[Rfam]
This 75-nucleotide sequence from Alligator sinensis belongs to the Rfam family "Mammalian CPEB3 ribozyme".
RNA sequence: AACUGCCAUCAUGACCAGAGCAGAAGUGCUUACGCUGCAGCCCUGUCAGAUUCUAAUGGAUCUGCAAAUUCUACU
Numbered sequence: 001a002a003c004u005g006c007c008a009u010c011a012u013g014a015c016c017a018g019a020g021c022a023g024a025a026g027u028g029c030u031u032a033c034g035c036u037g038c039a040g041c042c043c044u045g046u047c048a049g050a051u052u053c054u055a056a057u058g059g060a061u062c063u064g065c066a067a068a069u070u071c072u073a074c075u
Stems, first nucleotide, its partner, number of pairs: 013042001015040001019075002022072004026038003047064007
A search with the family's covariance model found it, with a score of 43 bits. Taxonomically the source falls in Alligator (Eukaryota, Craniata, Tetrapoda, Crocodylia). The base pairs follow the family's consensus structure, which is taken from published work.